[Rfam]
The record is a 419-nucleotide RNA from Schizophyllum commune, which matches "RNase MRP" in Rfam. It is annotated as a ribozyme. Its family is annotated with rRNA processing, ribonuclease MRP complex and ribonuclease MRP activity in the Gene Ontology. Rfam describes the family as follows. RNase MRP is an enzymatically active ribonucleoprotein with two distinct roles in eukaryotes. In mitochondria it plays a direct role in the initiation of mitochondrial DNA replication. In the nucleus it is involved in precursor rRNA processing, where it cleaves the internal transcribed spacer 1 between 18S and 5.8S rRNAs. Taxonomically the source falls in Schizophyllum commune (Eukaryota, Opisthokonta, Dikarya, Schizophyllineae).
RNA sequence: CUGCCGGUCGCAGAAUCGCUGUCGCAGCUCACAUACAGGAGGCCCGCCCUAUUGUAGGGCGUUGUGCCCUCCCCCCUCCGCUGUGGGGAAAGUCCCCGGAGACAAGGCAGAGCGUGCACCCACCGCGCACGCGGAAAGCGACUGCCCUUAGGCACGGUGGUCGCGGUGGGGGCGGCUGGCGAUCAGUGCGUCCUCGAUGAUGCUCCCGCCAGCCACUCUGCCCGCCCCCCUGACGCGCCUAUGCUCGGCGACGGUGCGCGCGAGCGAAGAUACGAGCACGCGCGUGCUCGGGCGUGGGCGCGGAGGGGGAGGCAUCUGUUGCUCAUAGACAUAGUUAUGCGAUUGUUGGCGCGCGUUCGUCGACCUAGUGUUCGGCGCUCGCGCGCCUUCAACUCAAUGGGGCUCACUCGCGACCGGCA
Numbered sequence: 001c002u003g004c005c006g007g008u009c010g011c012a013g014a015a016u017c018g019c020u021g022u023c024g025c026a027g028c029u030c031a032c033a034u035a036c037a038g039g040a041g042g043c044c045c046g047c048c049c050u051a052u053u054g055u056a057g058g059g060c061g062u063u064g065u066g067c068c069c070u071c072c073c074c075c076c077u078c079c080g081c082u083g084u085g086g087g088g089a090a091a092g093u094c095c096c097c098g099g100a101g102a103c104a105a106g107g108c109a110g111a112g113c114g115u116g117c118a119c120c121c122a123c124c125g126c127g128c129a130c131g132c133g134g135a136a137a138g139c140g141a142c143u144g145c146c147c148u149u150a151g152g153c154a155c156g157g158u159g160g161u162c163g164c165g166g167u168g169g170g171g172g173c174g175g176c177u178g179g180c181g182a183u184c185a186g187u188g189c190g191u192c193c194u195c196g197a198u199g200a201u202g203c204u205c206c207c208g209c210c211a212g213c214c215a216c217u218c219u220g221c222c223c224g225c226c227c228c229c230c231u232g233a234c235g236c237g238c239c240u241a242u243g244c245u246c247g248g249c250g251a252c253g254g255u256g257c258g259c260g261c262g263a264g265c266g267a268a269g270a271u272a273c274g275a276g277c278a279c280g281c282g283c284g285u286g287c288u289c290g291g292g293c294g295u296g297g298g299c300g301c302g303g304a305g306g307g308g309g310a311g312g313c314a315u316c317u318g319u320u321g322c323u324c325a326u327a328g329a330c331a332u333a334g335u336u337a338u339g340c341g342a343u344u345g346u347u348g349g350c351g352c353g354c355g356u357u358c359g360u361c362g363a364c365c366u367a368g369u370g371u372u373c374g375g376c377g378c379u380c381g382c383g384c385g386c387c388u389u390c391a392a393c394u395c396a397a398u399g400g401g402g403c404u405c406a407c408u409c410g411c412g413a414c415c416g417g418c419a
Stems, first nucleotide, its partner, number of pairs: 002419010014344006022086007039070001041068003045064001091404002094402004107117003123134004220313003226309006235301004246294002249291001280287002348387008